[Rfam]
RNA sequence: UCUUCAACUUGGCAAACAUGCUGAAAAGUAUGGACGCAAAGUCUCCGGCCUAAGGGAAGCUAUGGCAGCGGGACUGCGAUA
Numbered sequence: 001u002c003u004u005c006a007a008c009u010u011g012g013c014a015a016a017c018a019u020g021c022u023g024a025a026a027a028g029u030a031u032g033g034a035c036g037c038a039a040a041g042u043c044u045c046c047g048g049c050c051u052a053a054g055g056g057a058a059g060c061u062a063u064g065g066c067a068g069c070g071g072g073a074c075u076g077c078g079a080u081a
Stems, first nucleotide, its partner, number of pairs: 012037002017032006040075004045071003048066003055060001
Shown here is an 81-nucleotide RNA from Sideroxydans lithotrophicus, a member of the family "c-di-GMP-I riboswitch aptamer". Lineage of the source: Bacteria > Pseudomonadota > Betaproteobacteria > Nitrosomonadales > Sideroxydans lithotrophicus. It scores 68 bits against the family's covariance model.